[Rfam]
RNA: Bacterial large signal recognition particle RNA
Organism: Salisediminibacterium beveridgei
RNA sequence: UCGUGCUAGGUGGGGAGGUAGCGGUGCCCUGUACUCGCAAUCCGCUAUAGCGAGGCUGAAUCCCUUCCCGAGGUCCUUGUUCUGCUUGGUCUGACUCCGGUAAGUGGUGUUGACGUUUGGGUUCUGCGCAACGGAAUCCUGUGAAUCCUGUCAGGUCCGGAAGGAAGCAGCAGUAAGCAGACCAUUUCGUGUGCCGCAGAGUUACCUGGACCGAGCAAACUGCCGGUUUAACGCUUGUGGAACAUCGAUCGAAGGAAGGUGCACGG
Numbered sequence: 001u002c003g004u005g006c007u008a009g010g011u012g013g014g015g016a017g018g019u020a021g022c023g024g025u026g027c028c029c030u031g032u033a034c035u036c037g038c039a040a041u042c043c044g045c046u047a048u049a050g051c052g053a054g055g056c057u058g059a060a061u062c063c064c065u066u067c068c069c070g071a072g073g074u075c076c077u078u079g080u081u082c083u084g085c086u087u088g089g090u091c092u093g094a095c096u097c098c099g100g101u102a103a104g105u106g107g108u109g110u111u112g113a114c115g116u117u118u119g120g121g122u123u124c125u126g127c128g129c130a131a132c133g134g135a136a137u138c139c140u141g142u143g144a145a146u147c148c149u150g151u152c153a154g155g156u157c158c159g160g161a162a163g164g165a166a167g168c169a170g171c172a173g174u175a176a177g178c179a180g181a182c183c184a185u186u187u188c189g190u191g192u193g194c195c196g197c198a199g200a201g202u203u204a205c206c207u208g209g210a211c212c213g214a215g216c217a218a219a220c221u222g223c224c225g226g227u228u229u230a231a232c233g234c235u236u237g238u239g240g241a242a243c244a245u246c247g248a249u250c251g252a253a254g255g256a257a258g259g260u261g262c263a264c265g266g
Base pairs, nucleotide, nucleotide: 001266002265003264004263005262006261009057010056011055012030013029014028015027017025019023034054035053036052037051038050063259064258065257066256067255068254072250073249074248075247079243080242081241082240083239084238085237088234092230093229097226098225099224100223101222104220105219107216108215115211116210117209118208119207120206121205122204123200124199125198126197127196128195129191130190132189133188134187135186136185139180140179141178142177148173149172150171151170156165157164158163